[Rfam]
RNA: Small nucleolar RNA SNORA51
Organism: Sciurus carolinensis
RNA sequence: UCCCCCCUGGUGCUUACCAGAGGUUGUGUUCUUACACUGACCUUAUAGAAGAAGAGGAGGCAGAGUAAACCUACCCCGGGUAGGCCUCAGCCCAGGCCCUGCACCUGGUCUGCAUUGUGAAAGGGGAAACAUGG
Numbered sequence: 001u002c003c004c005c006c007c008u009g010g011u012g013c014u015u016a017c018c019a020g021a022g023g024u025u026g027u028g029u030u031c032u033u034a035c036a037c038u039g040a041c042c043u044u045a046u047a048g049a050a051g052a053a054g055a056g057g058a059g060g061c062a063g064a065g066u067a068a069a070c071c072u073a074c075c076c077c078g079g080g081u082a083g084g085c086c087u088c089a090g091c092c093c094a095g096g097c098c099c100u101g102c103a104c105c106u107g108g109u110c111u112g113c114a115u116u117g118u119g120a121a122a123g124g125g126g127a128a129a130c131a132u133g134g
Stems, first nucleotide, its partner, number of pairs: 003060002006057003020043001022041001026037004074126004088112003092108005